RNA sequence: CACAUCCAUCCAUUCACUACGGAUCGUCCGGCACGUACCUGCCGGUGAACGGGAGCAGUA
Numbered sequence: 001c002a003c004a005u006c007c008a009u010c011c012a013u014u015c016a017c018u019a020c021g022g023a024u025c026g027u028c029c030g031g032c033a034c035g036u037a038c039c040u041g042c043c044g045g046u047g048a049a050c051g052g053g054a055g056c057a058g059u060a
Stems, first nucleotide, its partner, number of pairs: 010052002013049004028045006